[Rfam]
RNA sequence: AUUGAAAGAACGCCGAGCUGCUCCUACAGGAGCAGACGGGGGAAUUUUUGGUCUCCACGUGUGGGGACCUUGGGGCGAAUGCAGGAAUGCAGGGGCGAUCUCAGCGUCCCAGUCCGACAACUAACCUCGCAGGCGUGCUGGGUAGGAUUG
Numbered sequence: 001a002u003u004g005a006a007a008g009a010a011c012g013c014c015g016a017g018c019u020g021c022u023c024c025u026a027c028a029g030g031a032g033c034a035g036a037c038g039g040g041g042g043a044a045u046u047u048u049u050g051g052u053c054u055c056c057a058c059g060u061g062u063g064g065g066g067a068c069c070u071u072g073g074g075g076c077g078a079a080u081g082c083a084g085g086a087a088u089g090c091a092g093g094g095g096c097g098a099u100c101u102c103a104g105c106g107u108c109c110c111a112g113u114c115c116g117a118c119a120a121c122u123a124a125c126c127u128c129g130c131a132g133g134c135g136u137g138c139u140g141g142g143u144a145g146g147a148u149u150g
Stems, first nucleotide, its partner, number of pairs: 011135004018035007037129005046072001073115003081090003093109004
RNA: c-di-AMP riboswitch aptamer (ydaO/yuaA leader)
Organism: Sulfobacillus harzensis